[Rfam]
RNA: nhaA-I RNA
Organism: Paracandidimonas soli
RNA sequence: GGGUUUCAGUCUCGGGGUUUUCAACGGGCUGGGAGGUUUCUGUGUAUUGGUCGGGCCGCCAAUG
Number, nucleotide and partner (000 for none) at each position: 001g000002g000003g000004u000005u033006u032007c031008a030009g029010u028011c027012u026013c000014g000015g000016g000017g000018u000019u000020u000021u000022c000023a000024a000025c000026g012027g011028g010029c009030u008031g007032g006033g005034a000035g000036g000037u000038u000039u000040c000041u000042g000043u000044g000045u064046a063047u062048u061049g060050g059051u058052c000053g000054g000055g000056c000057c000058g051059c050060c049061a048062a047063u046064g045